[Rfam]
RNA sequence: UAAUCCGGUGAAAACCAUAUGAAUCCAGUAGUGUAGUGAUUCAUAUGGUUCUCAAAA
Numbered sequence: 001u002a003a004u005c006c007g008g009u010g011a012a013a014a015c016c017a018u019a020u021g022a023a024u025c026c027a028g029u030a031g032u033g034u035a036g037u038g039a040u041u042c043a044u045a046u047g048g049u050u051c052u053c054a055a056a057a
Base pairs, nucleotide, nucleotide: 009054010053011052013050014049015048016047017046018045019044020043021042022041023040024039025038
A member of the RNA family "Plastid-ccsA-ndhD-1 3UTR RNA", 57 nucleotides long. Pairs were carried over by alignment from the consensus structure, which was predicted with LocARNA. Rfam classes the family as a cis-regulatory element. For this family Rfam cites "Retrograde signaling in plants: A critical review focusing on the GUN pathway and beyond" (Richter et al., Plant Commun, 2023). Rfam 15.1 lists 1,322 matches to the family in 557 species. About the family: Plastid-ccsA-ndhD-1 is a non-coding RNA (ncRNA) recognised in plastids. It was found in the three prime untranslated region (3UTR) of ccsA and ndhD genes, its 3UTR location suggests a role in transcript maturation.